Notes:
The record is an 82-nucleotide sequence from Alkaliphilus peptidifermentans, which matches "c-di-GMP-I-GGC riboswitch aptamer" in Rfam. Its Rfam clan is "c-di-GMP_I riboswitch clan". The match comes from Rfam's covariance-model search (62 bits). The base pairs follow the family's consensus structure, which is taken from published work.
RNA sequence: UACGAUAAAGGCAAACCACUGGAAAUGGUGGGACGCAAAGCUAAAGGGCCUAAUCGAAAGAAUGGCAGCCUGGCCACCGAAG
Numbered sequence: 001u002a003c004g005a006u007a008a009a010g011g012c013a014a015a016c017c018a019c020u021g022g023a024a025a026u027g028g029u030g031g032g033a034c035g036c037a038a039a040g041c042u043a044a045a046g047g048g049c050c051u052a053a054u055c056g057a058a059a060g061a062a063u064g065g066c067a068g069c070c071u072g073g074c075c076a077c078c079g080a081a082g
Stems, first nucleotide, its partner, number of pairs: 001082001003079002011036002016031006034068001040074003045071003048066003